Shown here is a 344-nucleotide sequence from Callorhinus ursinus, a member of the family "TrkB IRES". From the family's description: This family represents the TrkB internal ribosome entry site (IRES) which is present in the 5' leader sequence of the mRNA. TrkB is a neurotrophin receptor which is essential for the development and maintenance of the nervous system. It is annotated as an internal ribosome entry site. The match comes from Rfam's covariance-model search (206 bits). A reference for the family is Dobson et al. (2005), "Internal initiation of translation of the TrkB mRNA is mediated by multiple regions within the 5' leader", Nucleic Acids Res. Lineage of the source: Eukaryota > Tetrapoda > Eutheria > Otariidae > Callorhinus.

Nucleotides: 344
Base pairs, nucleotide, nucleotide: 001279002278003277004276006274007273009271021043023041025037026036027035028034045264046263049260051259052258053257057111060108061107062106065101066100067098069096070095071094073093074092075091076090078087079086113158114157115156116155117154119153121152122151123150128146129145130144135139163253165251166250167249169248170247172245173244174243177241182238185235186234188233189232190231191203193201194200206230207229209227213225214224282340284338285337286336287335288334289333290332291331292330293329294327295326296325298323299322301320
Number, partner (000 for none) and nucleotide at each position: 001279u002278c003277c004276c005000a006274g007273u008000g009271c010000g011000c012000g013000u014000c015000u016000a017000g018000c019000a020000a021043g022000g023041a024000g025037c026036c027035u028034g029000c030000u031000u032000c033000c034028c035027g036026g037025g038000g039000a040000g041023u042000g043021c044000c045264g046263g047000c048000a049260g050000c051259g052258c053257c054000g055000c056000g057111g058000g059000c060108c061107g062106g063000u064000g065101c066100u067098c068000g069096g070095c071094g072000c073093g074092c075091c076090g077000g078087g079086c080000c081000a082000u083000g084000c085000a086079g087078c088000g089000g090076c091075g092074g093073c094071c095070g096069c097000g098067g099000c100066g101065g102000a103000g104000c105000u106062c107061c108060g109000a110000g111057c112000g113158g114157c115156g116155g117154u118000a119153g120000c121152g122151c123150c124000c125000c126000c127000u128146g129145u130144g131000a132000g133000g134000c135139g136000g137000c138000c139135c140000a141000a142000g143000a144130u145129g146128c147000c148000c149000c150123g151122g152121c153119c154117a155116c156115u157114g158113u159000g160000a161000a162000c163253g164000g165251u166250g167249c168000c169248g170247c171000c172245c173244g174243c175000c176000a177241g178000g179000a180000c181000a182238c183000g184000c185235u186234c187000a188233g189232c190231c191203c192000c193201g194200g195000a196000c197000a198000c199000g200194c201193u202000c203191g204000g205000c206230u207229c208000u209227g210000c211000g212000c213225g214224c215000c216000c217000g218000c219000g220000a221000c222000a223000g224214g225213c226000a227209c228000c229207g230206g231190g232189g233188c234186g235185a236000a237000g238182g239000a240000g241177c242000g243174g244173c245172g246000a247170g248169c249167g250166c251165g252000g253163c254000a255000c256000a257053g258052g259051c260049c261000g262000c263046c264045c265000a266000a267000g268000c269000a270000g271009g272000g273007g274006c275000a276004g277003g278002g279001g280000a281000g282340g283000c284338c285337c286336g287335c288334c289333g290332g291331u292330g293329c294327a295326g296325c297000g298323c299322g300000c301320g302000g303000a304000c305000g306000c307000g308000u309000a310000c311000u312000c313000a314000g315000u316000c317000c318000g319000a320301c321000u322299c323298g324000g325296g326295c327294u328000g329293g330292c331291a332290c333289u334288g335287g336286c337285g338284g339000c340282u341000a342000g343000g344000g